The family of this 181-nucleotide RNA from Lunatimonas lonarensis is "Group II catalytic intron D1-D4-3". The family has 406 seed sequences and 4,274 matches in Rfam 15.1. The match comes from Rfam's covariance-model search (110 bits).
RNA sequence: UUUGCCGUGAGGCAUGCACUGAAGGCAGCGAGACUGCAAACCCCGGUUCCAACGAACAGGAACUGGAUACUGAGGCCUGGCAGGUCGGAUGAGGUAACACAACAUACUGACGUCCAAAGGGUGGGAAACCACCAAGUACCUGUCCGGUAGAUCCAGUGGAUAUUGGGGGAAGGAAUAUGCC
Number, nucleotide and partner (000 for none) at each position: 001u016002u000003u014004g013005c012006c011007g000008u000009g000010a000011g006012g005013c004014a003015u000016g001017c000018a000019c000020u000021g000022a000023a000024g000025g000026c000027a000028g181029c000030g000031a178032g000033a000034c000035u000036g000037c173038a000039a000040a000041c168042c167043c166044c165045g164046g163047u000048u160049c159050c158051a157052a000053c000054g000055a000056a000057c000058a000059g000060g000061a000062a000063c156064u155065g154066g153067a152068u151069a000070c000071u000072g000073a000074g000075g148076c147077c146078u000079g144080g143081c142082a141083g140084g139085u138086c000087g115088g114089a113090u112091g000092a000093g108094g107095u106096a105097a000098c000099a000100c000101a000102a000103c000104a000105u096106a095107c094108u093109g000110a000111c000112g090113u089114c088115c087116a000117a000118a000119g000120g000121g000122u000123g000124g000125g000126a000127a000128a000129c000130c000131a000132c000133c000134a000135a000136g000137u000138a085139c084140c083141u082142g081143u080144c079145c000146g077147g076148u075149a000150g000151a068152u067153c066154c065155a064156g063157u051158g050159g049160a048161u000162a000163u046164u045165g044166g043167g042168g041169g000170a000171a000172g000173g037174a000175a000176u000177a000178u031179g000180c000181c028